[Rfam]
About this RNA: The family of this 82-nucleotide RNA sequence from Paraconexibacter algicola is "c-di-GMP-I riboswitch aptamer". Rfam describes the family as follows. GEMM was predicted in a large-scale screen for bacterial structured RNA regulatory elements. Genes associated with GEMM are involved in a diverse array of functions, including chemotaxis regulation, signal transduction, secretion and chitin. It scores 51 bits against the family's covariance model. Taxonomically the source falls in Paraconexibacter (Bacteria, Bacillati, Thermoleophilia, Paraconexibacteraceae).

RNA sequence: CGGUGACAAGGGCAAACCGCUCGCGAGGGCGGGACGCAAAGCCACAGGCCUCGACCGCAAGCGAGGACGCUGGGCCGCCACC
Dot-bracket structure: ...........((...((((((....))))))...))...(((.(((.(((((........)))))...)))))).......
Numbered sequence: 001c002g003g004u005g006a007c008a009a010g011g012g013c014a015a016a017c018c019g020c021u022c023g024c025g026a027g028g029g030c031g032g033g034a035c036g037c038a039a040a041g042c043c044a045c046a047g048g049c050c051u052c053g054a055c056c057g058c059a060a061g062c063g064a065g066g067a068c069g070c071u072g073g074g075c076c077g078c079c080a081c082c
Stems, first nucleotide, its partner, number of pairs: 012037002017032006041075003045072003049066005